The family of this 258-nucleotide RNA from Cricetulus griseus is "Nuclear RNase P". The base pairs follow the family's consensus structure, which is taken from published work. About the family: Ribonuclease P (RNase P) is a ubiquitous endoribonuclease, found in archaea, bacteria and eukarya as well as chloroplasts and mitochondria.
RNA sequence: GGUGGAGAAAGCUCAUCAUCGGGGGCCCGUGCUGAGUGCUCAUCACUCCCAGGCCACUGGGAAGGUCUAAGACUGGGGCUUCCUGCAGCCCUAACUGGGCCCUCCCUGAGUGGAGAGGUGAGCUCCCAGAGAGCAGGGCUCCACACGGAUGCCUCCCUCACUUGGAACAGACUCACGACCAAUGCAGAGUGAGUUCAAUGGCUGAGGUGAGGUGCCUUGAUGGACAUCAUAACCCAAUUCAGACUACUCUUCCCCGCC
Numbered sequence: 001g002g003u004g005g006a007g008a009a010a011g012c013u014c015a016u017c018a019u020c021g022g023g024g025g026c027c028c029g030u031g032c033u034g035a036g037u038g039c040u041c042a043u044c045a046c047u048c049c050c051a052g053g054c055c056a057c058u059g060g061g062a063a064g065g066u067c068u069a070a071g072a073c074u075g076g077g078g079c080u081u082c083c084u085g086c087a088g089c090c091c092u093a094a095c096u097g098g099g100c101c102c103u104c105c106c107u108g109a110g111u112g113g114a115g116a117g118g119u120g121a122g123c124u125c126c127c128a129g130a131g132a133g134c135a136g137g138g139c140u141c142c143a144c145a146c147g148g149a150u151g152c153c154u155c156c157c158u159c160a161c162u163u164g165g166a167a168c169a170g171a172c173u174c175a176c177g178a179c180c181a182a183u184g185c186a187g188a189g190u191g192a193g194u195u196c197a198a199u200g201g202c203u204g205a206g207g208u209g210a211g212g213u214g215c216c217u218u219g220a221u222g223g224a225c226a227u228c229a230u231a232a233c234c235c236a237a238u239u240c241a242g243a244c245u246a247c248u249c250u251u252c253c254c255c256g257c258c
Stems, first nucleotide, its partner, number of pairs: 001258004007252003012206004017201001021057001023055002034048005067242002070239002077180002080177001088100004102117003106113002118176005124170001138161001207230004212225002
Dot-bracket structure: ((((..(((..((((.(...(.((.........(((((.....))))).....)).).........[[.[[.....((.(.......((((.....)))).(((.((....)).)))(((((.(.............(......................)........).)))))).))....................).))))((((.((..........)).)))).......]].]].......)))..))))